[Rfam]
RNA sequence: CAAGCCCCUCACGUGGCGCCAUCUCACCGAACUCCCCCAGGGCCGGAAGGCAGCAAGGGUAAGUGAGCUCUGGUGGGUGCGUGGGGGGCCCUUGC
Numbered sequence: 001c002a003a004g005c006c007c008c009u010c011a012c013g014u015g016g017c018g019c020c021a022u023c024u025c026a027c028c029g030a031a032c033u034c035c036c037c038c039a040g041g042g043c044c045g046g047a048a049g050g051c052a053g054c055a056a057g058g059g060u061a062a063g064u065g066a067g068c069u070c071u072g073g074u075g076g077g078u079g080c081g082u083g084g085g086g087g088g089c090c091c092u093u094g095c
Stems, first nucleotide, its partner, number of pairs: 004089010014077001017075005023067005034059003042051003
Rfam assigns this 95-nucleotide sequence from Streptomyces sp. ISL-11 to the family "Bacterial small signal recognition particle RNA".
It is annotated as a non-coding RNA gene.
On this family, see Rosenblad et al., Nucleic Acids Res 2003: "SRPDB: Signal Recognition Particle Database".
The match comes from Rfam's covariance-model search (62 bits).